[Rfam]
RNA sequence: CAUAGUAGCAGCGUUAGUCGGGUGUGAACCCCGACGACCGCAAGAGCAAGGGUUCCUCGGCACUGCUGUUCAGCCGAGGGUUAGUCGGUCCUAAGUCCCACCGUAAUUCGAAUGGGACAAAUGGGAAACUGGUUAAUAUUCCAGUACUGUUGUGCAGUGAAAGUCGACGCCUCGGGGUAUAUCGAGCCGGACGAUCGUCCGGUCGAAUCGUCGAAAUCCGUGGAAGCCGUAAUGGCAGGAAGCGGACGAAUGGCGAGAGAGGGAAACUCGAUUCAACCUGGGGCCCGUGAAAAGACGAGCACGACAUCCGUACCGAGAUCCGACACAGGUGCUCUGGCUUAGAAAGCCAAGGUCUGU
Numbered sequence: 001c002a003u004a005g006u007a008g009c010a011g012c013g014u015u016a017g018u019c020g021g022g023u024g025u026g027a028a029c030c031c032c033g034a035c036g037a038c039c040g041c042a043a044g045a046g047c048a049a050g051g052g053u054u055c056c057u058c059g060g061c062a063c064u065g066c067u068g069u070u071c072a073g074c075c076g077a078g079g080g081u082u083a084g085u086c087g088g089u090c091c092u093a094a095g096u097c098c099c100a101c102c103g104u105a106a107u108u109c110g111a112a113u114g115g116g117a118c119a120a121a122u123g124g125g126a127a128a129c130u131g132g133u134u135a136a137u138a139u140u141c142c143a144g145u146a147c148u149g150u151u152g153u154g155c156a157g158u159g160a161a162a163g164u165c166g167a168c169g170c171c172u173c174g175g176g177g178u179a180u181a182u183c184g185a186g187c188c189g190g191a192c193g194a195u196c197g198u199c200c201g202g203u204c205g206a207a208u209c210g211u212c213g214a215a216a217u218c219c220g221u222g223g224a225a226g227c228c229g230u231a232a233u234g235g236c237a238g239g240a241a242g243c244g245g246a247c248g249a250a251u252g253g254c255g256a257g258a259g260a261g262g263g264a265a266a267c268u269c270g271a272u273u274c275a276a277c278c279u280g281g282g283g284c285c286c287g288u289g290a291a292a293a294g295a296c297g298a299g300c301a302c303g304a305c306a307u308c309c310g311u312a313c314c315g316a317g318a319u320c321c322g323a324c325a326c327a328g329g330u331g332c333u334c335u336g337g338c339u340u341a342g343a344a345a346g347c348c349a350a351g352g353u354c355u356g357u
Base pairs, nucleotide, nucleotide: 017035018034019033020032021031022030036354037353038352039351044334045333046332047331050314051313055079056078057077058076059075060074064072065071086310087309088308090124091123095118096117097116098115099114100113102110103109128145129144130143131142132141148306149305150304151303152302153301154300155299163296164295165294169284170283171282172281173280174279175278176277181272182271183270184269186203187202188201189200190199208256209255210254211253217246218245219244220243221242226236227235228234262267320329321328335349336348337347338346
Dot-bracket structure: ................((((((.......))))))((((....((((..((...((((((...((.....)).))))))......(((.((...((((((.((.....))..))))))....))...(((((........)))))..((((((((.......(((...((((((((....((((.(((((........)))))....((((.....(((((....(((.....))).....)))))......)))).....(....).))))....)))))))).........)))..)))))))).)))..)).....((......)).))))((((.......)))).))))...